The record is a 69-nucleotide sequence from Anolis carolinensis, which matches "mir-8/mir-141/mir-200 microRNA precursor family" in Rfam.
RNA sequence: GUGGACAUCUUACUAGACAGUGCUGGAUUGUGUGCUCUGAUUCUAACACUGUCUGGUAACGAUGUUCAA
Numbered sequence: 001g002u003g004g005a006c007a008u009c010u011u012a013c014u015a016g017a018c019a020g021u022g023c024u025g026g027a028u029u030g031u032g033u034g035c036u037c038u039g040a041u042u043c044u045a046a047c048a049c050u051g052u053c054u055g056g057u058a059a060c061g062a063u064g065u066u067c068a069a
Base pairs, nucleotide, nucleotide: 002068003067004066005065006064007063008062009061010059011058012057013056014055015054016053017052018051019050020049021048022047024045025044026043027042
Clan: mir-8 microRNA precursor clan. The family has 164 seed sequences and 2,669 matches in Rfam 15.1. The source organism's lineage runs through Eukaryota, Dipnotetrapodomorpha, Bifurcata, Iguania and Anolis. The literature on the family includes a 2001 paper in Science by Lagos-Quintana et al., "Identification of novel genes coding for small expressed RNAs".